RNA sequence: UGGGAGGGUGAUACACAGGUAGAAGCAAGAUGUGUUCUGGCUGCCACAAACCUUCCCUACAAUAAAACUGCCUUCUGAUGACCAGGGCGAACUGAAAGAAAUCACAACGGACAGAUACGAGGCUGAACAAC
Numbered sequence: 001u002g003g004g005a006g007g008g009u010g011a012u013a014c015a016c017a018g019g020u021a022g023a024a025g026c027a028a029g030a031u032g033u034g035u036u037c038u039g040g041c042u043g044c045c046a047c048a049a050a051c052c053u054u055c056c057c058u059a060c061a062a063u064a065a066a067a068c069u070g071c072c073u074u075c076u077g078a079u080g081a082c083c084a085g086g087g088c089g090a091a092c093u094g095a096a097a098g099a100a101a102u103c104a105c106a107a108c109g110g111a112c113a114g115a116u117a118c119g120a121g122g123c124u125g126a127a128c129a130a131c
Stems, first nucleotide, its partner, number of pairs: 002057006016043003022037003068125001070123005082110002087105001089103002
Shown here is a 131-nucleotide sequence from Acipenser ruthenus, a member of the family "Small Cajal body specific RNA 8".
The match comes from Rfam's covariance-model search (98 bits).
Rfam classes the family as a small Cajal body RNA.
Lineage of the source: Eukaryota > Vertebrata > Euteleostomi > Acipenserinae > Acipenser.
For this family Rfam cites "Cajal body-specific small nuclear RNAs: a novel class of 2'-O-methylation and pseudouridylation guide RNAs" (Darzacq et al., EMBO J, 2002).
From the family's description: scaRNAs are a specific class of small nuclear RNAs which localise to the Cajal bodies and guide the modification of RNA polymerase II transcribed spliceosomal RNAs U1, U2, U4, U5 and U12. U92 belong to the H/ACA box class of guide RNAs as it has the predicted hairpin-hinge-hairpin-tail structure, conserved H/ACA-box motifs and is found associated with GAR1.